[Rfam]
The family of this 76-nucleotide sequence from Crocodylus porosus is "Mammalian CPEB3 ribozyme".
Pairs were carried over by alignment from the consensus structure, which is taken from published work.
Lineage of the source: Eukaryota > Craniata > Euteleostomi > Sauria > Crocodylus.

RNA sequence: ACAAACUCCCAAUGACCAUAGCAGAAGUGUUCAUGUCGCAGUCCCGUCAGAUUCUAACAGAUCUGCUAAGUUUGCU
Numbered sequence: 001a002c003a004a005a006c007u008c009c010c011a012a013u014g015a016c017c018a019u020a021g022c023a024g025a026a027g028u029g030u031u032c033a034u035g036u037c038g039c040a041g042u043c044c045c046g047u048c049a050g051a052u053u054c055u056a057a058c059a060g061a062u063c064u065g066c067u068a069a070g071u072u073u074g075c076u
Base pairs, nucleotide, nucleotide: 014043015042016041020076021075022074023073024072025071027039028038029037048065049064050063051062052061053060